[Rfam]
RNA sequence: UUUUAGGGAUAUCGGGCACAGGUUCUCCUCCUCCGACUGUUCUCCUUCACAGUUCGUGAUCCUGCGUGCCGCACAGGCGGUAUCCCGCUUCGUGUGCAAAAAAGCUCGUC
Numbered sequence: 001u002u003u004u005a006g007g008g009a010u011a012u013c014g015g016g017c018a019c020a021g022g023u024u025c026u027c028c029u030c031c032u033c034c035g036a037c038u039g040u041u042c043u044c045c046u047u048c049a050c051a052g053u054u055c056g057u058g059a060u061c062c063u064g065c066g067u068g069c070c071g072c073a074c075a076g077g078c079g080g081u082a083u084c085c086c087g088c089u090u091c092g093u094g095u096g097c098a099a100a101a102a103a104g105c106u107c108g109u110c
Stems, first nucleotide, its partner, number of pairs: 007085007015070005022061001024059001034056001035054006071095004075090004
Notes: This 110-nucleotide sequence belongs to the Rfam family "IMPDH RNA".